Pseudomonas sRNA P24: a 255-nucleotide sequence from Pseudomonas entomophila. It is annotated as a non-coding RNA gene.
Nucleotides: 255
Base pairs, nucleotide, nucleotide: 002011003010004009043057045055046054076193077192078191079190080189081162082161083160084159085096086095087094088093100125101124102123103122104121108117109116126155127154128153129152134145135144136143137142165187166186167185169183170182171181172180173179194215195214196212197211198210199209200208201207234255235254236253237252239250240249241248242247
Number, partner (000 for none) and nucleotide at each position: 001000u002011u003010g004009c005000g006000c007000a008000a009004g010003u011002g012000c013000u014000a015000u016000u017000u018000a019000u020000c021000a022000g023000a024000g025000c026000a027000a028000u029000c030000u031000u032000c033000g034000c035000a036000a037000u038000c039000c040000c041000c042000u043057g044000c045055c046054g047000c048000a049000c050000c051000a052000u053000u054046c055045g056000a057043c058000c059000u060000a061000u062000c063000u064000u065000u066000a067000u068000c069000a070000c071000c072000a073000g074000a075000a076193u077192c078191a079190c080189u081162g082161c083160c084159c085096g086095g087094a088093c089000a090000u091000c092000a093088g094087u095086c096085c097000a098000c099000g100125g101124c102123g103122a104121c105000g106000c107000g108117c109116c110000c111000c112000a113000g114000a115000c116109g117108g118000g119000c120000g121104g122103u123102c124101g125100c126155g127154g128153c129152c130000g131000g132000c133000c134145a135144u136143c137142c138000a139000a140000c141000a142137g143136g144135a145134u146000c147000c148000g149000c150000c151000a152129g153128g154127c155126c156000c157000c158000c159084g160083g161082g162081c163000u164000a165187c166186g167185c168000a169183c170182u171181g172180u173179c174000c175000a176000g177000a178000a179173g180172a181171c182170g183169g184000c185167g186166c187165g188000a189080g190079g191078u192077g193076a194215g195214c196212c197211g198210g199209u200208g201207u202000c203000a204000c205000a206000a207201g208200c209199g210198c211197c212196g213000a214195g215194c216000a217000c218000g219000g220000a221000c222000g223000a224000c225000a226000a227000u228000u229000c230000c231000c232000g233000a234255a235254g236253g237252g238000a239250g240249g241248c242247c243000g244000c245000a246000a247242g248241g249240c250239c251000u252237c253236c254235c255234u